Enterobacterial sRNA STnc410: a 158-nucleotide RNA from Escherichia albertii.

RNA sequence: GGGAUAAAUUGUUCAAUACUGGAUUAUCCCCGCCUGCAAAAGAGCCAUUUUCGGCUAUCGCCACGCCUUUUGUCUUCAGAAAAAUAAGGCACGGCCUUCAUUUAAGCGUCAGGCUGAUGUUUUUGCUCUUAUUUCGAUCAAUGAAUAAACGGGAAAAC
Numbered sequence: 001g002g003g004a005u006a007a008a009u010u011g012u013u014c015a016a017u018a019c020u021g022g023a024u025u026a027u028c029c030c031c032g033c034c035u036g037c038a039a040a041a042g043a044g045c046c047a048u049u050u051u052c053g054g055c056u057a058u059c060g061c062c063a064c065g066c067c068u069u070u071u072g073u074c075u076u077c078a079g080a081a082a083a084a085u086a087a088g089g090c091a092c093g094g095c096c097u098u099c100a101u102u103u104a105a106g107c108g109u110c111a112g113g114c115u116g117a118u119g120u121u122u123u124u125g126c127u128c129u130u131a132u133u134u135c136g137a138u139c140a141a142u143g144a145a146u147a148a149a150c151g152g153g154a155a156a157a158c
Stems, first nucleotide, its partner, number of pairs: 002029006010021001036073002039070002044066002086098003
The family's consensus secondary structure was predicted with CMfinder.
By type it is a small RNA.